RNA sequence: CGGGGUAUGGCGCAGCUUGGUAGCGCGUCCGCUUUGGGAGCGGAAGGCCGUCGGUUCGAAUCCGGCUACCCCGA
Dot-bracket structure: (((((((..((((.........)))).(((((.......))))).....(((((.......)))))))))))).
Rfam assigns this 74-nucleotide sequence from Janibacter alkaliphilus to the family "tRNA". Rfam 15.1 lists 5,335,975 matches to the family in 14,413 species. It scores 66 bits against the family's covariance model.